[Rfam]
RNA sequence: CCUUUGGACUAUUACAUCAAACGAAAUUAGUAUAUGAAUUUAUUCAUUAUAAAAUAGGAUAGGAUGAAUAAGAAA
Numbered sequence: 001c002c003u004u005u006g007g008a009c010u011a012u013u014a015c016a017u018c019a020a021a022c023g024a025a026a027u028u029a030g031u032a033u034a035u036g037a038a039u040u041u042a043u044u045c046a047u048u049a050u051a052a053a054a055u056a057g058g059a060u061a062g063g064a065u066g067a068a069u070a071a072g073a074a075a
Stems, first nucleotide, its partner, number of pairs: 002072003009062005022057001024055001030050003035046002